The family of this 93-nucleotide RNA from Nicotiana attenuata is "MIR6152 microRNA precursor family". Pairs were carried over by alignment from the consensus structure, which was predicted with RNAalifold. Lineage of the source: Eukaryota > Gunneridae > asterids > Solanales > Nicotiana. Rfam links the family to the GO terms RISC complex and miRNA-mediated post-transcriptional gene silencing.

RNA sequence: UGUAUUCGAGUGUAUUCGACUAUAUUCACGGCGUGAACAGGGGAUUACACUAUUUUUAAACGGAGAGUGAAUUAAUUAACAUAAUAGACUCCU
Numbered sequence: 001u002g003u004a005u006u007c008g009a010g011u012g013u014a015u016u017c018g019a020c021u022a023u024a025u026u027c028a029c030g031g032c033g034u035g036a037a038c039a040g041g042g043g044a045u046u047a048c049a050c051u052a053u054u055u056u057u058a059a060a061c062g063g064a065g066a067g068u069g070a071a072u073u074a075a076u077u078a079a080c081a082u083a084a085u086a087g088a089c090u091c092c093u
Stems, first nucleotide, its partner, number of pairs: 002090001007087001009085001011083003015079002018077002021074002024072006032062003035055002039051002